[Rfam]
RNA sequence: UUGCCUUAAACUAAUGAGUAAGGAAAACAAAGCGAGUGGUGGGAACUGCUCGCCGCGCCUACCGUAGAUUGUGCGCAUGAAUUUGUGGAGGGGUUAUAGGCUGGCCAUACGUUGACGCUGCUUACUUUGCAGAACUCGUUUGUGCGGGCCUCCC
Number, nucleotide and partner (000 for none) at each position: 001u000002u000003g000004c023005c022006u021007u020008a019009a000010a000011c000012u000013a000014a000015u000016g000017a000018g000019u008020a007021a006022g005023g004024a000025a000026a000027a000028c000029a000030a000031a000032g053033c052034g051035a050036g049037u048038g047039g046040u000041g000042g000043g000044a000045a000046c039047u038048g037049c036050u035051c034052g033053c032054c075055g074056c073057g072058c071059c000060u000061a000062c000063c000064g000065u000066a000067g000068a000069u000070u000071g058072u057073g056074c055075g054076c000077a000078u000079g000080a000081a000082u000083u000084u000085g000086u000087g000088g000089a000090g000091g000092g154093g153094u000095u000096a000097u000098a151099g150100g149101c148102u147103g000104g145105c000106c142107a141108u000109a139110c138111g137112u000113u000114g000115a000116c000117g000118c132119u131120g130121c129122u000123u000124a000125c000126u000127u000128u000129g121130c120131a119132g118133a000134a000135c000136u000137c111138g110139u109140u000141u107142g106143u000144g000145c104146g000147g102148g101149c100150c099151u098152c000153c093154c092

The record is a 154-nucleotide RNA sequence from Trema andersonii, which matches "U12 minor spliceosomal RNA" in Rfam. Rfam classes the family as a spliceosomal small nuclear RNA. Clan: U2 clan. The pairing is the family consensus, mapped onto this sequence. Its family is annotated with mRNA branch site recognition, pre-mRNA branch point binding and U12 snRNP in the Gene Ontology.